Shown here is a 153-nucleotide RNA from Nothocercus julius, a member of the family "Small nucleolar RNA SNORA12".
On this family, see Gu et al., Nucleic Acids Res 2005: "A novel experimental approach for systematic identification of box H/ACA snoRNAs from eukaryotes".
It is annotated as an H/ACA-box small nucleolar RNA.
Rfam 15.1 lists 571 matches to the family in 378 species.

RNA sequence: UGUUGUGGUGGUUUCUGUAUCUGGCAGAUCUGUAGCAGUAUCAGAGCGGCCUUGAGCCACCACAAAGAUCGAAAUGGAGGACGGGCAUCCUGAGAACUGUUUCAAGCUUUCAGUUUUCAGGAUUUUUUUUUUUUUGAUUCAACUCCUACAAAA
Number, nucleotide and partner (000 for none) at each position: 001u000002g000003u000004u000005g063006u062007g061008g060009u059010g058011g057012u000013u000014u000015c000016u000017g000018u000019a000020u000021c000022u000023g051024g050025c049026a000027g047028a000029u045030c044031u043032g042033u000034a000035g000036c000037a000038g000039u000040a000041u000042c032043a031044g030045a029046g000047c027048g000049g025050c024051c023052u000053u000054g000055a000056g000057c011058c010059a009060c008061c007062a006063c005064a000065a000066a000067g000068a000069u000070c000071g000072a000073a000074a000075u000076g146077g145078a144079g143080g101081a100082c099083g098084g097085g000086c000087a000088u000089c000090c000091u000092g000093a000094g000095a000096a000097c084098u083099g082100u081101u080102u000103c000104a000105a000106g000107c000108u000109u000110u000111c000112a138113g000114u136115u000116u000117u000118c000119a000120g000121g000122a000123u000124u000125u000126u000127u000128u000129u000130u000131u000132u000133u000134u000135u000136g114137a000138u112139u000140c000141a000142a000143c079144u078145c077146c076147u000148a000149c000150a000151a000152a000153a000